[Rfam]
RNA sequence: CAGUUUCCUGCUUCAACAGCGCUUGGAUGGAGCCCG
Numbered sequence: 001c002a003g004u005u006u007c008c009u010g011c012u013u014c015a016a017c018a019g020c021g022c023u024u025g026g027a028u029g030g031a032g033c034c035c036g
Stems, first nucleotide, its partner, number of pairs: 001036001003034001005032004010028001012027005017021001